Background: mir-432 microRNA precursor family: an 87-nucleotide sequence from Cricetulus griseus. Taxonomically the source falls in Cricetulus (Eukaryota, Eumetazoa, Teleostomi, Rodentia). A search with the family's covariance model found it, with a score of 96 bits. The literature on the family includes a 2009 paper in PLoS One by Goff et al., "Ago2 immunoprecipitation identifies predicted microRNAs in human embryonic stem cells and neural precursors". Pairs were carried over by alignment from the consensus structure, which was predicted with RNAalifold.
[Rfam]
RNA sequence: UGACUCCUCCAAGUCUUGGAGUAGGUCGUUCGGUGGAUCCUCUGUUUUCACACAUGGACCACUGGAUGACUUCUCCAUGUCUUGGAG
Number, nucleotide and partner (000 for none) at each position: 001u000002g000003a000004c000005u000006c000007c000008u000009c085010c084011a083012a082013g081014u000015c079016u000017u077018g076019g075020a074021g073022u000023a000024g071025g070026u069027c068028g067029u066030u065031c000032g063033g062034u061035g060036g059037a000038u058039c057040c056041u000042c000043u000044g000045u000046u000047u000048u000049c000050a000051c000052a000053c000054a000055u000056g040057g039058a038059c036060c035061a034062c033063u032064g000065g030066a029067u028068g027069a026070c025071u024072u000073c021074u020075c019076c018077a017078u000079g015080u000081c013082u012083u011084g010085g009086a000087g000